This 73-nucleotide sequence from Eubacterium sp. AF36-5BH belongs to the Rfam family "Fluoride riboswitch aptamer (crcB RNA motif)".
The match comes from Rfam's covariance-model search (48 bits).

[Rfam]
RNA sequence: UUAAAUAAAGGGAAUGAGGUUCUCCCUUGAUUUUAUCAAAACCGCUAGUAAAGCUGAUGACUUCUGUGUAACA
Numbered sequence: 001u002u003a004a005a006u007a008a009a010g011g012g013a014a015u016g017a018g019g020u021u022c023u024c025c026c027u028u029g030a031u032u033u034u035a036u037c038a039a040a041a042c043c044g045c046u047a048g049u050a051a052a053g054c055u056g057a058u059g060a061c062u063u064c065u066g067u068g069u070a071a072c073a
Stems, first nucleotide, its partner, number of pairs: 010026004016064006044054003
The base pairs follow the family's consensus structure, which is taken from published work.